[Rfam]
RNA sequence: AAGGGUUGCAAUGAUGAUAACAAGCUCCCUCUUCUGAAAUGAAAGUUGAGGAAAAUCGCUGGCAGAAUCGAACCUAUUACUUCAAUAGCCACUACUGAGUAA
Dot-bracket structure: .....((((.........................................................................................))))
The family of this 102-nucleotide RNA sequence from Camphora micrantha is "Small nucleolar RNA R30/Z108". Rfam's curators write: snoR30 is a C/D box small nucleolar RNA which acts as a methylation guide for 18S ribosomal RNA in plants. Clan: SNORD100 clan. Pairs were carried over by alignment from the consensus structure, which was predicted with PFOLD. Lineage of the source: Eukaryota > Embryophyta > Spermatophyta > Mesangiospermae > Camphora. A reference for the family is Marker et al. (2002), "Experimental RNomics. Identification of 140 Candidates for Small Non-Messenger RNAs in the Plant Arabidopsis thaliana", Curr Biol. Rfam classes the family as a C/D-box small nucleolar RNA. Its family is annotated with nucleolus and RNA processing in the Gene Ontology.